[Rfam]
A member of the RNA family "c-di-GMP-I riboswitch aptamer" from Desulfosporosinus acididurans, 86 nucleotides long. Lineage of the source: Bacteria > Bacillota > Clostridia > Desulfitobacteriaceae > Desulfosporosinus.
RNA sequence: CGGUUUUUAGAGCAAAUUGUUCGAAAGUACAGACGCAAAGCCAUAGGGUCUAACUUCCAUGGGAAUAUGACAGCCUGGCUGCAAAC
Numbered sequence: 001c002g003g004u005u006u007u008u009a010g011a012g013c014a015a016a017u018u019g020u021u022c023g024a025a026a027g028u029a030c031a032g033a034c035g036c037a038a039a040g041c042c043a044u045a046g047g048g049u050c051u052a053a054c055u056u057c058c059a060u061g062g063g064a065a066u067a068u069g070a071c072a073g074c075c076u077g078g079c080u081g082c083a084a085a086c
Base pairs, nucleotide, nucleotide: 012036013035018031019030020029022027039080040079041078042077045076046075047074048071049070050069055065056064057063058062
A search with the family's covariance model found it, with a score of 56 bits.